[Rfam]
RNA sequence: UACCCCAUGGAAUGCUCAGGUCCGCCGCAUCUCCUGGGUCCCGUGGGGCGGUCGGUCGGUCAAGUGCAAUGGCGGUUUCCUCGUACCGUCGCACGAAGACCGGCCGGCCACUUU
Numbered sequence: 001u002a003c004c005c006c007a008u009g010g011a012a013u014g015c016u017c018a019g020g021u022c023c024g025c026c027g028c029a030u031c032u033c034c035u036g037g038g039u040c041c042c043g044u045g046g047g048g049c050g051g052u053c054g055g056u057c058g059g060u061c062a063a064g065u066g067c068a069a070u071g072g073c074g075g076u077u078u079c080c081u082c083g084u085a086c087c088g089u090c091g092c093a094c095g096a097a098g099a100c101c102g103g104c105c106g107g108c109c110a111c112u113u114u
Stems, first nucleotide, its partner, number of pairs: 003048007015038006050109011